[Rfam]
RNA: mir-9229 microRNA precursor family
Organism: Pipistrellus kuhlii
RNA sequence: GAGACACCCUUAUGAGGCAGAACUUGUUUCAGUGGGGCUUAGGUGUUCACUGAGUCUGCCCCUUGAGUGUGUCUCU
Numbered sequence: 001g002a003g004a005c006a007c008c009c010u011u012a013u014g015a016g017g018c019a020g021a022a023c024u025u026g027u028u029u030c031a032g033u034g035g036g037g038c039u040u041a042g043g044u045g046u047u048c049a050c051u052g053a054g055u056c057u058g059c060c061c062c063u064u065g066a067g068u069g070u071g072u073c074u075c076u
Stems, first nucleotide, its partner, number of pairs: 001075007009067004014062001016060004022055002029053008037044002